[Rfam]
RNA: THF (Tetrahydrofolate) riboswitch aptamer
RNA sequence: AACAGAGUAGAAAAUAAAGCGUUAAGUGUUGUAGGAUGGGAUGUUGCCUACCAAACGAAGAAUGUUCAAUCAUUCGCGGUUUUAUUUUCGCAUUCGCUGCA
Numbered sequence: 001a002a003c004a005g006a007g008u009a010g011a012a013a014a015u016a017a018a019g020c021g022u023u024a025a026g027u028g029u030u031g032u033a034g035g036a037u038g039g040g041a042u043g044u045u046g047c048c049u050a051c052c053a054a055a056c057g058a059a060g061a062a063u064g065u066u067c068a069a070u071c072a073u074u075c076g077c078g079g080u081u082u083u084a085u086u087u088u089c090g091c092a093u094u095c096g097c098u099g100c101a
Base pairs, nucleotide, nucleotide: 003099004098005097010089011088012087013086014085015084016083017082018081019080020078021077022076026056027055029054030053031051032050033049034048035047039095040094041093042092043091060075061074062073063072